[Rfam]
Record summary
The record is a 102-nucleotide RNA from Anaeromonas frigoriresistens, which matches "Purine riboswitch aptamer" in Rfam. The source organism's lineage runs through Bacteria, Bacillati, Bacillota, Tissierellia and Anaeromonas. Pairs were carried over by alignment from the consensus structure, which is taken from published work. Riboswitches are metabolite binding domains within certain messenger RNAs that serve as precision sensors for their corresponding targets. It scores 84 bits against the family's covariance model.
RNA sequence: GUAUAAUUAAAUACAAGCACUCAUAUAAUAUCCGGGAUAUGGCCGGUAAGUUUCUACCUAAGAACCAUUAAUUCUUAGACUAUGGGUGAGACGGUAUCUUUG
Dot-bracket structure: .................((((((((...(..((((.......))))..)........(((((((.......)))))))..))))))))..............